Small nucleolar RNA Z122: an 81-nucleotide RNA sequence from Turnera subulata. The organism belongs to Turnera, within Eukaryota.
[Rfam]
RNA sequence: GCUCGGGUAUGAUGACAAGCUAGAUUACAGAGAUAACAGCUCUGCUGAAUAGUUUAUUUUGCACGUCAGUCUGAUCCGAAG
Numbered sequence: 001g002c003u004c005g006g007g008u009a010u011g012a013u014g015a016c017a018a019g020c021u022a023g024a025u026u027a028c029a030g031a032g033a034u035a036a037c038a039g040c041u042c043u044g045c046u047g048a049a050u051a052g053u054u055u056a057u058u059u060u061g062c063a064c065g066u067c068a069g070u071c072u073g074a075u076c077c078g079a080a081g
Base pairs, nucleotide, nucleotide: 003079004078005077006076007075